RNA sequence: ACAGAGGGGGCCGAAAAUCUUUAAAAGAGUAGGGA
Dot-bracket structure: ..(((.....[[.....)))...........]]..

Shown here is a 35-nucleotide sequence, a member of the family "DUF805b RNA". The family's RNA type in Rfam is cis-regulatory element.